[Rfam]
RNA sequence: AUUUUUGGCUAAGACUUUUGCCGUAUAUGUUUGGGAAUAGGGCCCGAACGUUUCUACCCGGCCACCGUAAAUGGCCGGACUACGGCGAAUAGGUCUUCGGGA
Numbered sequence: 001a002u003u004u005u006u007g008g009c010u011a012a013g014a015c016u017u018u019u020g021c022c023g024u025a026u027a028u029g030u031u032u033g034g035g036a037a038u039a040g041g042g043c044c045c046g047a048a049c050g051u052u053u054c055u056a057c058c059c060g061g062c063c064a065c066c067g068u069a070a071a072u073g074g075c076c077g078g079a080c081u082a083c084g085g086c087g088a089a090u091a092g093g094u095c096u097u098c099g100g101g102a
Stems, first nucleotide, its partner, number of pairs: 018088008029049007058078007
Overview:
The family of this 102-nucleotide RNA from Thermoactinomyces sp. AS95 is "Purine riboswitch aptamer". A search with the family's covariance model found it, with a score of 88 bits. Pairs were carried over by alignment from the consensus structure, which is taken from published work.